The family of this 83-nucleotide RNA sequence from Chitinasiproducens palmae is "SucA RNA motif". A reference for the family is Weinberg et al. (2007), "Identification of 22 candidate structured RNAs in bacteria using the CMfinder comparative genomics pipeline", Nucleic Acids Res. The family's consensus secondary structure is taken from published work. The source organism's lineage runs through Bacteria, Pseudomonadati, Betaproteobacteria, Burkholderiales and Chitinasiproducens.
RNA sequence: UCGCAAUCCGCUAACGGUCAGGCCGUGUCGCGGAAGGUUUUUCAAACCCGCAUUUUUUCGAGAAACUCGAAGAAAAGUGAGCG
Numbered sequence: 001u002c003g004c005a006a007u008c009c010g011c012u013a014a015c016g017g018u019c020a021g022g023c024c025g026u027g028u029c030g031c032g033g034a035a036g037g038u039u040u041u042u043c044a045a046a047c048c049c050g051c052a053u054u055u056u057u058u059c060g061a062g063a064a065a066c067u068c069g070a071a072g073a074a075a076a077g078u079g080a081g082c083g
Stems, first nucleotide, its partner, number of pairs: 002083003007034005015025004036048004049079003056072007